RNA sequence: ACUGGGAGCGUGGCGCACUCCUGUAAUCCAGCUUCUUGGAGGUCGGGUUCAGUGGAUGGUUUGAGGUUGGGAGUCCUGUUGCAAAGCGAUUCACGUUGACUGGAUGUCCGCACUAAGAUCGGCAUCGAUAUGGACAUCCCGGAGGAGUCCGGGAUGUCCAGGUCAGCUAAGGAGGGGCGAACCGGGCCAGGGGGGAAACCCAGCAGCCAAAAGUCCCCGUGUCGUUCAGUAGUGGGAUCGCGUCUAGGAGUGGAAGCUUUGUGACAGCCCAAUCAAUACAGCUAGACCUGGGCCUUU
Numbered sequence: 001a002c003u004g005g006g007a008g009c010g011u012g013g014c015g016c017a018c019u020c021c022u023g024u025a026a027u028c029c030a031g032c033u034u035c036u037u038g039g040a041g042g043u044c045g046g047g048u049u050c051a052g053u054g055g056a057u058g059g060u061u062u063g064a065g066g067u068u069g070g071g072a073g074u075c076c077u078g079u080u081g082c083a084a085a086g087c088g089a090u091u092c093a094c095g096u097u098g099a100c101u102g103g104a105u106g107u108c109c110g111c112a113c114u115a116a117g118a119u120c121g122g123c124a125u126c127g128a129u130a131u132g133g134a135c136a137u138c139c140c141g142g143a144g145g146a147g148u149c150c151g152g153g154a155u156g157u158c159c160a161g162g163u164c165a166g167c168u169a170a171g172g173a174g175g176g177g178c179g180a181a182c183c184g185g186g187c188c189a190g191g192g193g194g195g196a197a198a199c200c201c202a203g204c205a206g207c208c209a210a211a212a213g214u215c216c217c218c219g220u221g222u223c224g225u226u227c228a229g230u231a232g233u234g235g236g237a238u239c240g241c242g243u244c245u246a247g248g249a250g251u252g253g254a255a256g257c258u259u260u261g262u263g264a265c266a267g268c269c270c271a272a273u274c275a276a277u278a279c280a281g282c283u284a285g286a287c288c289u290g291g292g293c294c295u296u297u
Stems, first nucleotide, its partner, number of pairs: 001043003004022005010016001027040003045295008057284005065274007076267012090254005096248001100247008108236002111234005117227002120224006127164003131160013167171001174217005185208003192201003
Dot-bracket structure: ((((((((.(.....).)))))....(((........)))))).((((((((....(((((...(((((((....((((((((((((..(((((.(...((((((((((.(((((.((.((((((.(((.(((((((((((((....))))))))))))).)))..(...)..(((((......(((....(((....)))....)))....))))).)))))).))..)))))))...))))))))).))))).))))))))))))))))))).....)))))...))))))))..
Shown here is a 297-nucleotide RNA sequence from Tribolium castaneum, a member of the family "Metazoan signal recognition particle RNA". Taxonomically the source falls in Tribolium (Eukaryota, Eumetazoa, Ecdysozoa, Hexapoda). The family's consensus secondary structure is taken from published work.